Rfam assigns this 74-nucleotide RNA sequence from Bombyx mori to the family "mir-2816 microRNA precursor family".
[Rfam]
RNA sequence: CUCAACUCUACUCGAGUGAGGUAGAAACGUGGUAUUGCGUCAACAUGACGUCAUCCGUUUGAGAAUAUUUUGAU
Numbered sequence: 001c002u003c004a005a006c007u008c009u010a011c012u013c014g015a016g017u018g019a020g021g022u023a024g025a026a027a028c029g030u031g032g033u034a035u036u037g038c039g040u041c042a043a044c045a046u047g048a049c050g051u052c053a054u055c056c057g058u059u060u061g062a063g064a065a066u067a068u069u070u071u072g073a074u
Base pairs, nucleotide, nucleotide: 002073003072004071005070009065011063012062013061014060015059016058018055019054021052028047029046030045031044
The organism belongs to Bombyx, within Eukaryota. The match comes from Rfam's covariance-model search (56 bits).